Shown here is a 56-nucleotide RNA from Dipsacus japonicus, a member of the family "Plastid-psbA-4 3UTR RNA". Taxonomically the source falls in Dipsacus (Eukaryota, Embryophyta, Magnoliopsida, campanulids). Rfam's curators put it in the seed alignment. It is annotated as a cis-regulatory element. Plastid psbA-4 is a non-coding RNA (ncRNA) present in plastids. It was identified in inverted repeat sequences in the 3 prime untranslate region (3UTR) of photosystem II quinone-binding protein (psbA).
Nucleotides: 056
Base pairs, nucleotide, nucleotide: 002055003054004053005052006051007050008049009048010047011046012045013044017040018039020037021036022035023034024033025032
Number, partner (000 for none) and nucleotide at each position: 001000a002055a003054a004053g005052g006051g007050a008049g009048c010047a011046a012045u013044a014000a015000u016000c017040c018039c019000c020037c021036u022035c023034u024033u025032g026000a027000u028000a029000g030000a031000a032025c033024a034023a035022g036021a037020g038000g039018g040017g041000g042000a043000u044013u045012a046011u047010u048009g049008c050007u051006c052005c053004c054003u055002u056000u